[Rfam]
RNA sequence: UAGUAUUGUUAGAUCACAUCUCUAUCUGGUAGUGUCAGAACCUCAUCUGAAUAAUUAGAACCCUUGGUUUCAACAAGCUCUGUUACAUCAAAUGAUUUUUUGACAUAGUAUCAGAAUUUUGAUAACUAAAUAAUUAC
Dot-bracket structure: ....(((.(..(.(...(.....((.(((((.............................................................................)))))..))..)...).)..)..)))...